[Rfam]
RNA: L17-Actino-Proteobacteria ribosomal protein leader
Organism: Caldimonas brevitalea
RNA sequence: CGCCCCGGCCACCGAGCCGGGGUGAUGUGCAACCCCCGGUACCUGAUCCGGCCGGGGUUC
Numbered sequence: 001c002g003c004c005c006c007g008g009c010c011a012c013c014g015a016g017c018c019g020g021g022g023u024g025a026u027g028u029g030c031a032a033c034c035c036c037c038g039g040u041a042c043c044u045g046a047u048c049c050g051g052c053c054g055g056g057g058u059u060c
Stems, first nucleotide, its partner, number of pairs: 001024009031059002034057007